Background
The family of this 31-nucleotide RNA sequence from Sphaeramia orbicularis is "Iron response element II". Rfam describes the family as follows. IRE, TFRC, SLC40A1, SDHB, SLC11A2, CDC42BPA, ACO2, ALAS2_H.SAPIENS, CDC14A, EPAS1, ALAS2, qoxD, Hao1, NDUFS1, transferrin, Aconitate. Rfam links the family to the GO term response to iron ion. The organism belongs to Sphaeramia, within Eukaryota. The family's consensus secondary structure is taken from published work.
RNA sequence: GCAUUAUCGGGUGCAGUGUCACCCAUAAUGA
Numbered sequence: 001g002c003a004u005u006a007u008c009g010g011g012u013g014c015a016g017u018g019u020c021a022c023c024c025a026u027a028a029u030g031a
Stems, first nucleotide, its partner, number of pairs: 002030006009024005014018001